[Rfam]
Nucleotides: 372
Stems, first nucleotide, its partner, number of pairs: 004372003008322007016036006041366003045363003049359001050236005055072006078231005083104006105120001106118005121226002124165004132156004140149002172224002174220003189208008240256003260289007291306005325351002329346006
Number, partner (000 for none) and nucleotide at each position: 001000g002000u003000u004372u005371u006370c007000u008322g009321g010320u011319a012318a013317u014316c015000g016036c017035g018034g019033u020032c021031u022000a023000u024000u025000u026000u027000a028000g029000a030000u031021a032020g033019g034018c035017u036016g037000a038000g039000g040000a041366a042365a043364g044000u045363c046362c047361a048000a049359g050236c051235u052234u053233g054232c055072a056071c057070a058069g059068g060067c061000u062000g063000a064000g065000a066000u067060g068059c069058u070057u071056g072055u073000a074000g075000u076000g077000a078231u079230c080229g081228u082227g083104c084103u085102u086101g087100c088099u089000g090000a091000a092000a093000a094000a095000a096000u097000a098000a099088g100087g101086c102085a103084a104083g105120g106118u107117a108116c109115c110114a111000u112000u113000a114110u115109g116108g117107u118106a119000a120105c121226g122225g123000c124165g125164g126163a127162u128000a129000a130000a131000a132156a133155g134154g135153c136000u137000a138000a139000a140149g141148u142000c143000u144000u145000a146000u147000g148141a149140c150000c151000a152000u153135g154134u155133c156132u157000g158000a159000g160000u161000a162127g163126u164125c165124c166000u167000g168000a169000a170000a171000a172224g173223u174220g175219c176218c177000a178000c179000a180000g181000u182000g183000a184000c185000g186000a187000a188000g189208c190207a191206g192205u193204a194203g195202u196201g197000g198000a199000a200000a201196c202195a203194u204193u205192a206191c207190u208189g209000g210000u211000g212000g213000a214000a215000c216000g217000c218176g219175g220174u221000a222000a223173a224172c225122c226121c227082c228081g229080c230079g231078a232054g233053c234052a235051g236050g237000u238000a239000a240256c241255c242254c243000a244000a245000a246000c247000u248000u249000u250000g251000g252000u253000a254242g255241g256240g257000g258000c259000g260289c261288u262287u263286c264285a265284u266283g267000a268000c269000g270000g271000a272000a273000a274000u275000g276000a277000a278000c279000u280000a281000a282000u283266c284265a285264u286263g287262g288261g289260g290000g291306c292305g293304a294303g295302u296000u297000u298000a299000a300000u301000a302295a303294c304293u305292c306291g307000g308000a309000g310000a311000u312000a313000g314000a315000u316014g317013a318012u319011u320010a321009c322008c323000a324000c325351c326350g327000a328000u329346u330345u331344u332343a333342g334341c335000u336000c337000c338000u339000g340000g341334g342333c343332u344331a345330a346329a347000u348000g349000a350326c351325g352000u353000a354000c355000a356000g357000a358000a359049c360000g361047u362046g363045g364043c365042u366041u367000a368000u369000a370006g371005a372004g